[Rfam]
RNA sequence: GUGGAGUGGGAAUAAAGAGUCAACAUAAUAUGAAUGGGGAAUGCCGAUAAAUCAACGUUUUUCAACUUAUGAAAUGCUUGAUUUUCAUUAAAAAUGAUAUGGUUCCCUACCAUUUUCCCUACCAAAAUAAAACCCUGCUAAGAUGUUUCUUGGCAGGGAAUUUUUU
Dot-bracket structure: .......(((((....................................(((((((.((.(((((.....))))).)))))))))((((.....)))).....))))).........((((.((((........................)))).))))........